[Rfam]
Rfam assigns this 103-nucleotide sequence from Durio zibethinus to the family "MIR2275 microRNA precursor family". The organism belongs to Durio, within Eukaryota.
RNA sequence: UAGUUGUAAGUGAGAAUUGGAGGGAAUUAAGCCAAAUUCCAUUGGCAUUAUUAUUUAUGCUUCUGUUUUGAUUUAAUUUCCUCCAAUAUCUCACCUCCAAUUC
Numbered sequence: 001u002a003g004u005u006g007u008a009a010g011u012g013a014g015a016a017u018u019g020g021a022g023g024g025a026a027u028u029a030a031g032c033c034a035a036a037u038u039c040c041a042u043u044g045g046c047a048u049u050a051u052u053a054u055u056u057a058u059g060c061u062u063c064u065g066u067u068u069u070g071a072u073u074u075a076a077u078u079u080c081c082u083c084c085a086a087u088a089u090c091u092c093a094c095c096u097c098c099a100a101u102u103c
Stems, first nucleotide, its partner, number of pairs: 004100003008096001011093004016087006023080008033070004